[Rfam]
RNA sequence: ACGGAAGCCCGGAGAGGCCAAGGUCGAUCCGGAAGAGAAGGUUCGAUCUCCCGAUCCGGGCGUCCUAGCACGGUUCCCGGCACCCACGCGGAGCUACAGCCGCGAUAAUGGCAGAAGUGUUGCGGGCCUGCGUUAUUGCGAGAAACGAAUGGUGUCGUCAGCCCUUUGGGUGGGGCUGCGGCCAGACGUCUCGCAAGAUCGCCGAGGCCAACCCACGCAGCCCCAUGUUGCACGCUUGGUAACCGGGCUCCGUGCUAGCGGGCGGCGGGCCGGAACGCUUCGGACCGCCGCCCGCUUU
Dot-bracket structure: ..((..((((((...((...((..(((.((.........)).)))..)).))...))))))..))((((((((...((((...(((.(((..((....(((........)))......((((((((((((((...((((((...(((..((((.....(((((((......)))))))..))))..))).))))))...)))..)))))......))))))........)).))).)))...))))...))))))))(((((((((((.(((........))).)))))))))))...

Rfam assigns this 298-nucleotide sequence from Mycobacterium botniense to the family "Mycobacterium smegmatis small RNA 1".
From the family's description: Mycobacterium smegmatis small RNA 1 is highly expressed during stationary phase of growth. Ms1 RNA directly interacts with RNA polymerase (RNAP), but in a different way than 6S, which is present in other bacteria. Ms1 does not require the presence of the main sigma factor for RNAP interaction.
Pairs were carried over by alignment from the consensus structure, which was predicted with CMfinder.
Its family is annotated with RNA polymerase binding in the Gene Ontology.